[Rfam]
RNA: Bacterial RNase P class A
Organism: Echinicola pacifica
RNA sequence: AGUGCAAGCCGACUUGUCGCCGCAACCUAGUGUUGAGGAGGAAAGUCCGGGCAAUAUAGAGCGCCAUACUUCCUAACGGGAAGGGCUAAGUCUGGUGACGGGCUUGGUACAGACAGUGCCACAGAAAACAAACCGCCUUGGUAUCCACCGAGGUAAGGGUGAAAAGGUGAGGUAAGAGCUCACCGUCCUUUUCGUGAGAUGAGGAGCAGGGUAAACCUUAUGGGUUGAAAGAUCAAAUAGGCUCCGGUCCAAGGGCUGCUCGUCCAAUUCCUGAGCUUGUCUCAUGGAAAACCGGAGUGGGUAGAUCGAUAGAUCUUAGUUGCAAAGCUAAGACUAGAUAAAUGACAAGUAUCCGUCCUUGACGGAGACAGAACCCGGCUUAUAGGCUUGCACAUUUU
Dot-bracket structure: .(((((((((((((((((.((.((((.....)))).))....[[[.[[[[[((((....[...((((((((((.....)))))(((((((((((....)))))))))).)((...(((((............((((((((((....))))))))..)).......((((((.......))))))((((((.((....)).))))).)..)))..)))))))))))))...((((......((((((..............................((.((...].)).)).)))))).....))))......((((((((....))))))))..........))))))).......................]]]]]]]].).))))))))).....